RNA sequence: ACUCGAGGCGGUGACGCGAAAGCAUCCCCUCUCGAAGGCGUUUCGGGGAGGAAACGUCCGCUCCGUCAGAGAGCGAAAGAAAGCCCGCUGCGAUGUAUCCCCCGCAGCGGGCUUUUUCGUGCGCGC
Numbered sequence: 001a002c003u004c005g006a007g008g009c010g011g012u013g014a015c016g017c018g019a020a021a022g023c024a025u026c027c028c029c030u031c032u033c034g035a036a037g038g039c040g041u042u043u044c045g046g047g048g049a050g051g052a053a054a055c056g057u058c059c060g061c062u063c064c065g066u067c068a069g070a071g072a073g074c075g076a077a078a079g080a081a082a083g084c085c086c087g088c089u090g091c092g093a094u095g096u097a098u099c100c101c102c103c104g105c106a107g108c109g110g111g112c113u114u115u116u117u118c119g120u121g122c123g124c125g126c
Stems, first nucleotide, its partner, number of pairs: 003035006011028001013026002016023001037058008062125001064123003067071001078117015
Dot-bracket structure: ..((((((..(.((.(......).)).).)))))).((((((((......))))))))...(.((((...)......(((((((((((((((..........)))))))))))))))...))).).
A member of the RNA family "Caulobacter sRNA CrfA" from Brevundimonas sp. Leaf363, 126 nucleotides long. The pairing is the family consensus, mapped onto this sequence. For this family Rfam cites "Small non-coding RNAs in Caulobacter crescentus" (Landt et al., Mol Microbiol, 2008). A search with the family's covariance model found it, with a score of 50 bits. Taxonomically the source falls in Brevundimonas (Bacteria, Pseudomonadati, Pseudomonadota, Alphaproteobacteria).